[Rfam]
RNA sequence: AAGUUCCUUUAAGACUUGCUUUCGGGUCACAAACGGAGAUGAACCUAUCUCAUUAUCACCGAGGGAAAGUCCCCAGACCGAGCGUAGAGACUACCGAUUUGAGGAAUCGUGUCAAACCUAUCAGCUGCCUCCCGUCGAUGCAAUGACGCCAUUUGGCGGAGCUGGGAGUUGUUGGUAGGUAUAUUCGUCAUAGUACAGACAAAUGCAAGUGGCACUUUGGUGUUAACAGAAUGGGGAUUACUCUGAAGGAAUU
Numbered sequence: 001a002a003g004u005u006c007c008u009u010u011a012a013g014a015c016u017u018g019c020u021u022u023c024g025g026g027u028c029a030c031a032a033a034c035g036g037a038g039a040u041g042a043a044c045c046u047a048u049c050u051c052a053u054u055a056u057c058a059c060c061g062a063g064g065g066a067a068a069g070u071c072c073c074c075a076g077a078c079c080g081a082g083c084g085u086a087g088a089g090a091c092u093a094c095c096g097a098u099u100u101g102a103g104g105a106a107u108c109g110u111g112u113c114a115a116a117c118c119u120a121u122c123a124g125c126u127g128c129c130u131c132c133c134g135u136c137g138a139u140g141c142a143a144u145g146a147c148g149c150c151a152u153u154u155g156g157c158g159g160a161g162c163u164g165g166g167a168g169u170u171g172u173u174g175g176u177a178g179g180u181a182u183a184u185u186c187g188u189c190a191u192a193g194u195a196c197a198g199a200c201a202a203a204u205g206c207a208a209g210u211g212g213c214a215c216u217u218u219g220g221u222g223u224u225a226a227c228a229g230a231a232u233g234g235g236g237a238u239u240a241c242u243c244u245g246a247a248g249g250a251a252u253u
Base pairs, nucleotide, nucleotide: 002253003252004251005250006249007248008247009246010245011244014210015209016208017207018206019205022063023061025060026059027058036051037050038049039048040047041046067239068238071236072235073234074233083096084094085093086092097112098111100109101108102107114182116180120176121175122174123173124172125171128168130166140162141161148157149156150155212223213222214221215220